[Rfam]
RNA: SAM (S-adenosyl methionine) riboswitch aptamer
Organism: Gordonia aichiensis
RNA sequence: GGUCAUGAGUGCCAGCGACAAGCCCCGGCUAGCUGGUCGGCAACCCUCCUCCGCGGUGGGGUGCUCCGGGUGACGACCUGGCCAUAUCCGAGGUGGGUAUGGCAAGCGUGGAUU
Numbered sequence: 001g002g003u004c005a006u007g008a009g010u011g012c013c014a015g016c017g018a019c020a021a022g023c024c025c026c027g028g029c030u031a032g033c034u035g036g037u038c039g040g041c042a043a044c045c046c047u048c049c050u051c052c053g054c055g056g057u058g059g060g061g062u063g064c065u066c067c068g069g070g071u072g073a074c075g076a077c078c079u080g081g082c083c084a085u086a087u088c089c090g091a092g093g094u095g096g097g098u099a100u101g102g103c104a105a106g107c108g109u110g111g112a113u114u
Stems, first nucleotide, its partner, number of pairs: 001078004009038001011037006021030002039065003044061003048056002081103010